[Rfam]
RNA sequence: CUGCAUGUUAAUCCAAGAGCUGUGGCUCUGAAAUAGCUGCAGGUCUCCAACAGCAUGCAAGAGCAACAGGAAGGUCUUUGACUGCUGGGCCUCUUUUUGCCUGUUGCUGUCACUCGCCCCUCCUACAUAU
Numbered sequence: 001c002u003g004c005a006u007g008u009u010a011a012u013c014c015a016a017g018a019g020c021u022g023u024g025g026c027u028c029u030g031a032a033a034u035a036g037c038u039g040c041a042g043g044u045c046u047c048c049a050a051c052a053g054c055a056u057g058c059a060a061g062a063g064c065a066a067c068a069g070g071a072a073g074g075u076c077u078u079u080g081a082c083u084g085c086u087g088g089g090c091c092u093c094u095u096u097u098u099g100c101c102u103g104u105u106g107c108u109g110u111c112a113c114u115c116g117c118c119c120c121u122c123c124u125a126c127a128u129a130u
Stems, first nucleotide, its partner, number of pairs: 013042001018038006069123003073119002084110002087101002
This 130-nucleotide sequence from Chauna torquata belongs to the Rfam family "Small nucleolar RNA SNORA44". ACA44 is a member of the H/ACA class of snoRNA that guide the sites of modification of uridines to pseudouridines. On this family, see Huttenhofer et al., EMBO J 2001: "RNomics: an experimental approach that identifies 201 candidates for novel, small, non-messenger RNAs in mouse". The source organism's lineage runs through Eukaryota, Euteleostomi, Saurischia, Neognathae and Chauna. Gene Ontology terms of the family: RNA processing and nucleolus. A search with the family's covariance model found it, with a score of 82 bits.